[Rfam]
RNA sequence: CUCGACAAAGGCAAACCCGUCGCGAGGCGGGGACGCAAAGCAAGGGGCCUUCAAGGAUGGAGGCAGCCCAGCCGCCGAAA
Numbered sequence: 001c002u003c004g005a006c007a008a009a010g011g012c013a014a015a016c017c018c019g020u021c022g023c024g025a026g027g028c029g030g031g032g033a034c035g036c037a038a039a040g041c042a043a044g045g046g047g048c049c050u051u052c053a054a055g056g057a058u059g060g061a062g063g064c065a066g067c068c069c070a071g072c073c074g075c076c077g078a079a080a
Base pairs, nucleotide, nucleotide: 003077004076011036012035016031017030018029019028020027021026034066040072041071044069045068046067047064048063049062
Shown here is an 80-nucleotide RNA sequence from a Solirubrobacteraceae bacterium, a member of the family "c-di-GMP-I-GGC riboswitch aptamer".
The match comes from Rfam's covariance-model search (72 bits).
Its Rfam clan is "c-di-GMP_I riboswitch clan".
The organism belongs to Solirubrobacteraceae, within Bacteria.
Rfam links the family to the GO term cyclic-di-GMP binding.
Pairs were carried over by alignment from the consensus structure, which is taken from published work.